[Rfam]
Source information
Rfam assigns this 130-nucleotide RNA from Vitis vinifera to the family "MIR845_2 microRNA precursor family".
RNA sequence: ACAAUGCACAUUCAUUGUCCUUAGGGCAAUGGGAUAAACAAAUACCAACAAAACCAAGUUAGCACACCCUAGAAUGGUUCUAACAUGAUUACUAACCUAUGGAUUUGAUACCAAUCGAUGGGAAAAAUAU
Numbered sequence: 001a002c003a004a005u006g007c008a009c010a011u012u013c014a015u016u017g018u019c020c021u022u023a024g025g026g027c028a029a030u031g032g033g034a035u036a037a038a039c040a041a042a043u044a045c046c047a048a049c050a051a052a053a054c055c056a057a058g059u060u061a062g063c064a065c066a067c068c069c070u071a072g073a074a075u076g077g078u079u080c081u082a083a084c085a086u087g088a089u090u091a092c093u094a095a096c097c098u099a100u101g102g103a104u105u106u107g108a109u110a111c112c113a114a115u116c117g118a119u120g121g122g123a124a125a126a127a128u129a130u
Stems, first nucleotide, its partner, number of pairs: 009120004014115003022107004027102001029100005052079002055076002059072004
Gene Ontology terms of the family: miRNA-mediated post-transcriptional gene silencing and RISC complex. It scores 110 bits against the family's covariance model.